The family of this 63-nucleotide sequence from Mucilaginibacter frigoritolerans is "Fluoride riboswitch aptamer (crcB RNA motif)". The source organism's lineage runs through Bacteria, Pseudomonadati, Bacteroidota, Sphingobacteriia and Mucilaginibacter.
RNA sequence: CUUGCAGCAGGAAAUGGUGUCUUCCUUUUAAAAACCGCGUUUGCUGAUGGCGCCUGCAAUACC
Numbered sequence: 001c002u003u004g005c006a007g008c009a010g011g012a013a014a015u016g017g018u019g020u021c022u023u024c025c026u027u028u029u030a031a032a033a034a035c036c037g038c039g040u041u042u043g044c045u046g047a048u049g050g051c052g053c054c055u056g057c058a059a060u061a062c063c
Stems, first nucleotide, its partner, number of pairs: 010025004016054006037044002